[Rfam]
RNA sequence: UACCGAUUGUCGAGAGGCGACGGGAUGGGCGUGCAGAAGUCAGCCGAGGCCGUAGUAAGUGGCGGUCAACCACGCCAUCAAGGGC
Dot-bracket structure: ((.(..(((((....)))))..)..))............((....)).(((.......((((((........))))))....)))
RNA: Group II catalytic intron D1-D4-1
Organism: Pseudomonas sp. UK4